RNA sequence: GAAAGGGCGUGUUAUAAACAUGCCUGGGCUGGGAUAUCGGUGUAUUUUCGCCGGUAGGACAAGGUGGAAGCGUCCGCAGCCUCAAUUAGA
Numbered sequence: 001g002a003a004a005g006g007g008c009g010u011g012u013u014a015u016a017a018a019c020a021u022g023c024c025u026g027g028g029c030u031g032g033g034a035u036a037u038c039g040g041u042g043u044a045u046u047u048u049c050g051c052c053g054g055u056a057g058g059a060c061a062a063g064g065u066g067g068a069a070g071c072g073u074c075c076g077c078a079g080c081c082u083c084a085a086u087u088a089g090a
Stems, first nucleotide, its partner, number of pairs: 005025008026082006
S4-Clostridia ribosomal protein leader: a 90-nucleotide sequence. Rfam's curators put it in the seed alignment. The base pairs follow the family's consensus structure, which is taken from published work. On this family, see Eckert and Weinberg, BMC Microbiol 2020: "Discovery of 20 novel ribosomal leader candidates in bacteria and archaea".